[Rfam]
RNA sequence: GAUAACUUAAGCCAAGCGUACAGAAACUUUUUACAAUCAAAGAGUUUGUUCGUUUGGCUCGAGUUAGGC
Number, nucleotide and partner (000 for none) at each position: 001g000002a000003u066004a000005a064006c063007u062008u061009a000010a059011g058012c057013c056014a000015a000016g000017c052018g051019u000020a049021c048022a047023g046024a000025a000026a000027c000028u000029u000030u000031u000032u000033a000034c000035a000036a000037u000038c000039a000040a000041a000042g000043a000044g000045u000046u023047u022048g021049u020050u000051c018052g017053u000054u000055u000056g013057g012058c011059u010060c000061g008062a007063g006064u005065u000066a003067g000068g000069c000
The record is a 69-nucleotide RNA from Anopheles stephensi, which matches "mir-375 microRNA precursor family" in Rfam. The family has 47 seed sequences and 824 matches in Rfam 15.1. Taxonomically the source falls in Neocellia (Eukaryota, Metazoa, Eumetazoa, Insecta). Its family is annotated with miRNA-mediated post-transcriptional gene silencing and RISC complex in the Gene Ontology. Pairs were carried over by alignment from the consensus structure, which was predicted with RNAalifold. A search with the family's covariance model found it, with a score of 47 bits.